[Rfam]
RNA: Streptomyces RNA 6925
Organism: Streptomyces populi
RNA sequence: UCGGUGUUGCCACGCUGAGACGCCCCGUGCGAAGGGAUCAGCGUGGUGAUGGCGGCGAAGUCCGUCCUUCCCGGGACGGUUCGCCCAUUCAGCGGUGGGCGUCCGGGAGUUCCCGCUCCCGGGCGCCACCG
Dot-bracket structure: .(...((..(((((((((....(.(........))..)))))))))..)).(.((.(....(((((((....)))))))....))).)...).....(((((((((((((....)))))))))))))....
Numbered sequence: 001u002c003g004g005u006g007u008u009g010c011c012a013c014g015c016u017g018a019g020a021c022g023c024c025c026c027g028u029g030c031g032a033a034g035g036g037a038u039c040a041g042c043g044u045g046g047u048g049a050u051g052g053c054g055g056c057g058a059a060g061u062c063c064g065u066c067c068u069u070c071c072c073g074g075g076a077c078g079g080u081u082c083g084c085c086c087a088u089u090c091a092g093c094g095g096u097g098g099g100c101g102u103c104c105g106g107g108a109g110u111u112c113c114c115g116c117u118c119c120c121g122g123g124c125g126c127c128a129c130c131g
Stems, first nucleotide, its partner, number of pairs: 002092001006050002010046009023035001025034001052088001054086002057084001062079007098127013